[Rfam]
RNA sequence: GUUUAAGGAUGAAUGGCUAAGACCGCCACGUCCUUUGGCAAGGCCGUCCUGACCUGCGUCCGCAGA
Numbered sequence: 001g002u003u004u005a006a007g008g009a010u011g012a013a014u015g016g017c018u019a020a021g022a023c024c025g026c027c028a029c030g031u032c033c034u035u036u037g038g039c040a041a042g043g044c045c046g047u048c049c050u051g052a053c054c055u056g057c058g059u060c061c062g063c064a065g066a
Base pairs, nucleotide, nucleotide: 011049013047014046015045016044017043025039026038027037028036054065055064056063057062
Bacillaceae-1 RNA: a 66-nucleotide RNA from Peribacillus deserti. The source organism's lineage runs through Bacteria, Bacillota, Bacilli, Caryophanales and Peribacillus. Pairs were carried over by alignment from the consensus structure, which is taken from published work.